[Rfam]
RNA sequence: AACCGCUGAUGACUCAUUUUAUUUUUCUGACACCUCGUAUGAGCCCUGCCCAGCAGUGCCUGAUUAUAAAUUACACUCUGAGGUUC
Numbered sequence: 001a002a003c004c005g006c007u008g009a010u011g012a013c014u015c016a017u018u019u020u021a022u023u024u025u026u027c028u029g030a031c032a033c034c035u036c037g038u039a040u041g042a043g044c045c046c047u048g049c050c051c052a053g054c055a056g057u058g059c060c061u062g063a064u065u066a067u068a069a070a071u072u073a074c075a076c077u078c079u080g081a082g083g084u085u086c
Stems, first nucleotide, its partner, number of pairs: 001085004046056004
Shown here is an 86-nucleotide RNA from Ameiurus melas, a member of the family "Small nucleolar RNA SNORD60". Gene Ontology terms of the family: nucleolus and RNA processing. Clan: SNORD60 clan. It scores 58 bits against the family's covariance model. NCBI's taxonomy places the organism under Eukaryota, Opisthokonta, Neopterygii, Siluriformes, Ameiurus. A reference for the family is Galardi et al. (2002), "Purified box C/D snoRNPs are able to reproduce site-specific 2'-O-methylation of target RNA in vitro", Mol Cell Biol.